The family of this 52-nucleotide RNA from Aureimonas sp. Leaf324 is "serC leader".
A reference for the family is Corbino et al. (2005), "Evidence for a second class of S-adenosylmethionine riboswitches and other regulatory RNA motifs in alpha-proteobacteria", Genome Biol.
Rfam links the family to the GO term regulation of gene expression.
This family is a putative regulatory RNA structure that is found upstream of the serC-serA operon in some alpha-proteobacteria.
The pairing is the family consensus, mapped onto this sequence.
The source organism's lineage runs through Bacteria, Pseudomonadati, Alphaproteobacteria, Hyphomicrobiales and Aureimonas.

[Rfam]
RNA sequence: ACUUGGGACACGCCUCCCCAACGAGGCGCUUCUAUCUGUAAGGAUAGCUUUU
Numbered sequence: 001a002c003u004u005g006g007g008a009c010a011c012g013c014c015u016c017c018c019c020a021a022c023g024a025g026g027c028g029c030u031u032c033u034a035u036c037u038g039u040a041a042g043g044a045u046a047g048c049u050u051u052u
Stems, first nucleotide, its partner, number of pairs: 011028006032047006